[Rfam]
The family of this 73-nucleotide RNA from Artemisia annua is "small nucleolar RNA snoR117". The organism belongs to Artemisia, within Eukaryota. A reference for the family is Chen and Wu (2009), "Mining small RNA sequencing data: a new approach to identify small nucleolar RNAs in Arabidopsis", Nucleic Acids Res. The family's RNA type in Rfam is C/D-box small nucleolar RNA. Gene Ontology terms of the family: nucleolus and RNA processing. Pairs were carried over by alignment from the consensus structure, which was predicted with RNAalifold.
RNA sequence: UGCCUAUGAUGAGUGAUGUCUUGUCCGUACCAUCUGAUUUUUAUGAUUAGUAUUUGCAUCCAAUUUCUGGCAU
Numbered sequence: 001u002g003c004c005u006a007u008g009a010u011g012a013g014u015g016a017u018g019u020c021u022u023g024u025c026c027g028u029a030c031c032a033u034c035u036g037a038u039u040u041u042u043a044u045g046a047u048u049a050g051u052a053u054u055u056g057c058a059u060c061c062a063a064u065u066u067c068u069g070g071c072a073u
Stems, first nucleotide, its partner, number of pairs: 001072004